[Rfam]
RNA sequence: AAGCAACACCCUGGCAGAUGAUCAUAACUGUCUGACGCAAUUUGAGCUUGCCAUAGCAACGGAGUCUAACCUAUUUCCGUGCAAUCUCCUCUAUGAGACAAGGCCUUACAUAGACACAGACAGU
Numbered sequence: 001a002a003g004c005a006a007c008a009c010c011c012u013g014g015c016a017g018a019u020g021a022u023c024a025u026a027a028c029u030g031u032c033u034g035a036c037g038c039a040a041u042u043u044g045a046g047c048u049u050g051c052c053a054u055a056g057c058a059a060c061g062g063a064g065u066c067u068a069a070c071c072u073a074u075u076u077c078c079g080u081g082c083a084a085u086c087u088c089c090u091c092u093a094u095g096a097g098a099c100a101a102g103g104c105c106u107u108a109c110a111u112a113g114a115c116a117c118a119g120a121c122a123g124u
Base pairs, nucleotide, nucleotide: 009046011044012039013038015034016033017032018031019030020029062117064115065114066113067112068111072110074108080102085098086097087096088095
RNA: Small nucleolar RNA SNORA28